[Rfam]
RNA sequence: GCUGGUAGAGGUGAUGACUCUUUCCCCGUCAGAGCGGCAGUGCUGACUAUCGCUCUCCAAGCCAGGUCGUUCUGAUGCACCAGC
Numbered sequence: 001g002c003u004g005g006u007a008g009a010g011g012u013g014a015u016g017a018c019u020c021u022u023u024c025c026c027c028g029u030c031a032g033a034g035c036g037g038c039a040g041u042g043c044u045g046a047c048u049a050u051c052g053c054u055c056u057c058c059a060a061g062c063c064a065g066g067u068c069g070u071u072c073u074g075a076u077g078c079a080c081c082a083g084c
Base pairs, nucleotide, nucleotide: 001084002083003082004081005080006079009076
This 84-nucleotide RNA sequence from Serinus canaria belongs to the Rfam family "Small nucleolar SNORD12/SNORD106".
The organism belongs to Serinus, within Eukaryota.